[Rfam]
RNA: RT-15 RNA
Organism: Pseudomonas sp. M1
RNA sequence: CCGCGCCCGUUGCUUGAGGGUUACGGCCCUCUUGCCUGCGCGCCAAAUCUGGUCGUGCCGCUGCCCGGUUGGGCACCGCCAUGCGCACCUACAGGGACCACCGGCUACCGGCGAGGCCUGGCGCAGUUUCCCCAUCGAGCAAUCGGCGGGGCGACGUGGAUAGCACGAUAGGUCG
Numbered sequence: 001c002c003g004c005g006c007c008c009g010u011u012g013c014u015u016g017a018g019g020g021u022u023a024c025g026g027c028c029c030u031c032u033u034g035c036c037u038g039c040g041c042g043c044c045a046a047a048u049c050u051g052g053u054c055g056u057g058c059c060g061c062u063g064c065c066c067g068g069u070u071g072g073g074c075a076c077c078g079c080c081a082u083g084c085g086c087a088c089c090u091a092c093a094g095g096g097a098c099c100a101c102c103g104g105c106u107a108c109c110g111g112c113g114a115g116g117c118c119u120g121g122c123g124c125a126g127u128u129u130c131c132c133c134a135u136c137g138a139g140c141a142a143u144c145g146g147c148g149g150g151g152c153g154a155c156g157u158g159g160a161u162a163g164c165a166c167g168a169u170a171g172g173u174c175g
Base pairs, nucleotide, nucleotide: 004042005041006040012035013034016031017030018029019028020027021026053168054167055166056165057164058163059078060077062075063074064073065072066071082125083124084123085122086121092120093119094118095117098116099115101111102110103109104108127154128153130151131150132149133148135146136145137144138143